[Rfam]
RNA sequence: CUUUCCGAGGAGCGUUGCGAGUCAAUUUAAUUUGAUCCCAGGCUCGGACAAUGUAUCAAACCGCGCUCAUCUUAC
Numbered sequence: 001c002u003u004u005c006c007g008a009g010g011a012g013c014g015u016u017g018c019g020a021g022u023c024a025a026u027u028u029a030a031u032u033u034g035a036u037c038c039c040a041g042g043c044u045c046g047g048a049c050a051a052u053g054u055a056u057c058a059a060a061c062c063g064c065g066c067u068c069a070u071c072u073u074a075c
Stems, first nucleotide, its partner, number of pairs: 002050001004048005021037001022035004
The family of this 75-nucleotide RNA sequence from Methyloradius palustris is "SAH (S-adenosyl-L-homocysteine) riboswitch aptamer". Pairs were carried over by alignment from the consensus structure, which is taken from published work. Taxonomically the source falls in Methyloradius (Bacteria, Pseudomonadati, Pseudomonadota, Nitrosomonadales).